A member of the RNA family "uup RNA" from Blautia pseudococcoides, 51 nucleotides long. By type it is a cis-regulatory element.
RNA sequence: GACGAAUCAGCUCCGUACAGAUAACGUUUCCGGUGAGACAUUGUACGGAGU
Numbered sequence: 001g002a003c004g005a006a007u008c009a010g011c012u013c014c015g016u017a018c019a020g021a022u023a024a025c026g027u028u029u030c031c032g033g034u035g036a037g038a039c040a041u042u043g044u045a046c047g048g049a050g051u
Stems, first nucleotide, its partner, number of pairs: 011050005017044003
Dot-bracket structure: ..........(((((.(((......................))).))))).